[Rfam]
RNA sequence: AUAGAGCAACAGUUUCUAUGUUGUCUAAAUUGCCCCCGAUAAUCUUUUUACUGGUCCAAAAAGUGAAACAAGAUUAUCGGGGGUUGUUUUU
Numbered sequence: 001a002u003a004g005a006g007c008a009a010c011a012g013u014u015u016c017u018a019u020g021u022u023g024u025c026u027a028a029a030u031u032g033c034c035c036c037c038g039a040u041a042a043u044c045u046u047u048u049u050a051c052u053g054g055u056c057c058a059a060a061a062a063g064u065g066a067a068a069c070a071a072g073a074u075u076a077u078c079g080g081g082g083g084u085u086g087u088u089u090u091u
Stems, first nucleotide, its partner, number of pairs: 001019005027091003032084015
A member of the RNA family "CopA-like RNA" from Salmonella enterica, 91 nucleotides long. Lineage of the source: Bacteria > Pseudomonadota > Enterobacterales > Enterobacteriaceae > Salmonella enterica subsp. enterica serovar Kentucky. For this family Rfam cites "Structural analysis of an RNA molecule involved in replication control of plasmid R1" (Gerhart et al., Nucleic Acids Res, 1986). Rfam links the family to the GO term mRNA binding. Rfam describes the family as follows. In several groups of bacterial plasmids, antisense RNAs regulate copy number through inhibition of replication initiator protein synthesis. These RNAs are characterised by a long hairpin structure interrupted by several unpaired residues or bulged loops. In plasmid R1, the inhibitory complex between the antisense RNA (CopA) and its target mRNA (CopT) is characterised by a four-way junction structure and a side-by-side helical alignment.